[Rfam]
RNA: U11 spliceosomal RNA
Organism: Zingiber officinale
RNA sequence: UAAAAGGGUCGGUUGGCUAUGUAUGCCACGCUCGUCUUUCAAUUGAUGAGUGCUGUAUGGUUAUCAAGACAUAUGGCCGACACAAUUUGUGGAAUCAGAUGGGGUUGGCUCGCUCGGCCGACCCUACA
Dot-bracket structure: .......(((((.((((.......))))((((((((........))))))))(((((((..........))))))))))))...................((.(((((.((....)))))))))....